[Rfam]
Rfam assigns this 66-nucleotide sequence to the family "Repression of heat shock gene expression (ROSE) element". Its family is annotated with response to temperature stimulus and regulation of translation in the Gene Ontology. The pairing is the family consensus, mapped onto this sequence. A search with the family's covariance model found it, with a score of 69 bits.
RNA sequence: UGUGGGAUGCCGAAGUCGGGUCCCGCGUUUAUCACUCGCUGAAUCUCAGGAGAUUUAAUCAUGAGC
Numbered sequence: 001u002g003u004g005g006g007a008u009g010c011c012g013a014a015g016u017c018g019g020g021u022c023c024c025g026c027g028u029u030u031a032u033c034a035c036u037c038g039c040u041g042a043a044u045c046u047c048a049g050g051a052g053a054u055u056u057a058a059u060c061a062u063g064a065g066c
Base pairs, nucleotide, nucleotide: 001027002026003025004024005023006022007021008020010019011018012017031054032053035052036051037050039049040048041047042046